[Rfam]
RNA sequence: UUCAUUCCGCGCGACUGGCGAGAAAGUGGAGCAACACCACGAGGGAGCGCGGAAUUGGUCAGCGCCGCUCGCCUGGGCCGCAUCG
Number, nucleotide and partner (000 for none) at each position: 001u000002u000003c000004a055005u054006u053007c052008c051009g050010c049011g048012c047013g000014a000015c044016u043017g073018g072019c071020g070021a069022g000023a000024a000025a000026g040027u039028g038029g037030a000031g000032c000033a000034a000035c000036a000037c029038c028039a027040c026041g000042a000043g016044g015045g000046a000047g012048c011049g010050c009051g008052g007053a006054a005055u004056u000057g000058g000059u000060c000061a000062g000063c000064g078065c077066c076067g000068c000069u021070c020071g019072c018073c017074u000075g000076g066077g065078c064079c000080g000081c000082a000083u000084c000085g000
The family of this 85-nucleotide RNA is "ZMP/ZTP riboswitch aptamer (pfl RNA motif)". The base pairs follow the family's consensus structure, which is taken from published work. A search with the family's covariance model found it, with a score of 62 bits.